[Rfam]
Annotation
The record is a 95-nucleotide RNA from Branchiostoma lanceolatum, which matches "mir-2060 microRNA precursor family" in Rfam.
RNA sequence: ACAUGUUUGACAUACAGAAUGUGUUCAGCACCAAGGACAGGCAUGUUCACCUGUGUGUGGAUGGUGUUCAGCACCAAGGACAGGCAUGUUAACCU
Numbered sequence: 001a002c003a004u005g006u007u008u009g010a011c012a013u014a015c016a017g018a019a020u021g022u023g024u025u026c027a028g029c030a031c032c033a034a035g036g037a038c039a040g041g042c043a044u045g046u047u048c049a050c051c052u053g054u055g056u057g058u059g060g061a062u063g064g065u066g067u068u069c070a071g072c073a074c075c076a077a078g079g080a081c082a083g084g085c086a087u088g089u090u091a092a093c094c095u
Base pairs, nucleotide, nucleotide: 004086005085006084007083008082009081021074022073023072024071025070027068028067029066030065031064032063033062035056037054038053039052040051041050
About this RNA: Taxonomically the source falls in Branchiostoma (Eukaryota, Opisthokonta, Metazoa, Amphioxiformes). It scores 73 bits against the family's covariance model.